A member of the RNA family "DUF3800-X RNA", 78 nucleotides long. Pairs were carried over by alignment from the consensus structure, which is taken from published work. By type it is a small RNA. Rfam's curators put it in the seed alignment.
RNA sequence: UAGUGUUGUAAGAGUUCCCUCCUGAAAAGGAUGAUGCUGCCUAUUGGCAGGCGUGACGAAGUAGGGUGGGGUUCACUA
Number, nucleotide and partner (000 for none) at each position: 001u078002a077003g076004u075005g074006u000007u000008g000009u000010a000011a000012g000013a000014g000015u000016u071017c070018c069019c068020u000021c066022c065023u064024g000025a000026a000027a000028a000029g000030g000031a000032u000033g000034a000035u000036g000037c050038u049039g048040c047041c046042u000043a000044u000045u000046g041047g040048c039049a038050g037051g000052c000053g000054u000055g000056a000057c000058g000059a000060a000061g000062u000063a000064g023065g022066g021067u000068g019069g018070g017071g016072u000073u000074c005075a004076c003077u002078a001